[Rfam]
RNA sequence: GCUCGCAUGGGUAGUAUUACCCAUGCGAGCGGAGUAGCAGUAGCA
Numbered sequence: 001g002c003u004c005g006c007a008u009g010g011g012u013a014g015u016a017u018u019a020c021c022c023a024u025g026c027g028a029g030c031g032g033a034g035u036a037g038c039a040g041u042a043g044c045a
Base pairs, nucleotide, nucleotide: 001030002029003028004027005026006025007024008023009022010021011020
RNA: ssNA-helicase RNA